[Rfam]
RNA sequence: AACCUUGUGCAGUGGCAAUAUCGCAAACAAUGAGGUCACAACCGAGUUGCGAUUAUUGCUAGUUGAAAACUUUAACCAAUAACUCGCCCUGUGUGAGCCACGCUCACGUUGAGGCAAUUUUUUUAGGCUCGAAAGAGC
Numbered sequence: 001a002a003c004c005u006u007g008u009g010c011a012g013u014g015g016c017a018a019u020a021u022c023g024c025a026a027a028c029a030a031u032g033a034g035g036u037c038a039c040a041a042c043c044g045a046g047u048u049g050c051g052a053u054u055a056u057u058g059c060u061a062g063u064u065g066a067a068a069a070c071u072u073u074a075a076c077c078a079a080u081a082a083c084u085c086g087c088c089c090u091g092u093g094u095g096a097g098c099c100a101c102g103c104u105c106a107c108g109u110u111g112a113g114g115c116a117a118u119u120u121u122u123u124u125a126g127g128c129u130c131g132a133a134a135g136a137g138c
Stems, first nucleotide, its partner, number of pairs: 020053005026048003034043003086115003089111001091109008127138004
A member of the RNA family "U4 spliceosomal RNA" from Drosophila virilis, 138 nucleotides long. The family's consensus secondary structure is taken from published work. It is annotated as a spliceosomal small nuclear RNA. From the family's description: U4 small nuclear RNA (U4 snRNA) is a component of the major U2-dependent spliceosome. For this family Rfam cites "The uRNA database" (Zwieb, Nucleic Acids Res, 1997). Rfam 15.1 lists 32,178 matches to the family in 2,547 species.